RNA sequence: UUUGAGGGGAAUGUUGUCUGGCUCGAGGCCACCAACUCUUAUCUAUUUCUCGAGAUCUAGCCAAAGAUAUGUGUUUGUGUCGUCGGACCAGGCUUCAUUCCCCCCAAU
Number, nucleotide and partner (000 for none) at each position: 001u000002u107003u106004g105005a000006g103007g102008g101009g100010a099011a098012u097013g096014u000015u000016g093017u092018c091019u090020g089021g088022c000023u000024c085025g084026a083027g000028g000029c000030c000031a000032c000033c000034a000035a000036c000037u000038c000039u000040u000041a000042u000043c000044u000045a000046u000047u000048u000049c000050u000051c000052g000053a000054g000055a000056u000057c000058u000059a000060g000061c000062c000063a000064a000065a000066g000067a000068u000069a000070u000071g000072u000073g000074u000075u000076u000077g000078u000079g000080u000081c000082g000083u026084c025085g024086g000087a000088c021089c020090a019091g018092g017093c016094u000095u000096c013097a012098u011099u010100c009101c008102c007103c006104c000105c004106a003107a002108u000